[Rfam]
RNA sequence: CGAGGGGGAACCUCCGUUAAAACCGCCCACGUCCUGUGGGCAACACGGAAAUUAGUACAUCCUGUACA
Numbered sequence: 001c002g003a004g005g006g007g008g009a010a011c012c013u014c015c016g017u018u019a020a021a022a023c024c025g026c027c028c029a030c031g032u033c034c035u036g037u038g039g040g041c042a043a044c045a046c047g048g049a050a051a052u053u054a055g056u057a058c059a060u061c062c063u064g065u066a067c068a
Stems, first nucleotide, its partner, number of pairs: 013049005026040005055067004

The record is a 68-nucleotide RNA sequence from Bacillus sp. FJAT-50079, which matches "Bacillaceae-1 RNA" in Rfam. The base pairs follow the family's consensus structure, which is taken from published work. Lineage of the source: Bacteria > Bacillati > Bacilli > Bacillaceae > Bacillus.